[Rfam]
RNA sequence: UGUAUCAACAAUGACCACUGGUAGCAUAUGAGUCAUAUAUAAAGAAUACAUGUCUGGAACUCUUGAGGUCCAC
Numbered sequence: 001u002g003u004a005u006c007a008a009c010a011a012u013g014a015c016c017a018c019u020g021g022u023a024g025c026a027u028a029u030g031a032g033u034c035a036u037a038u039a040u041a042a043a044g045a046a047u048a049c050a051u052g053u054c055u056g057g058a059a060c061u062c063u064u065g066a067g068g069u070c071c072a073c
Base pairs, nucleotide, nucleotide: 002071004069005068006067
Dot-bracket structure: .(.(((............................................................))).)..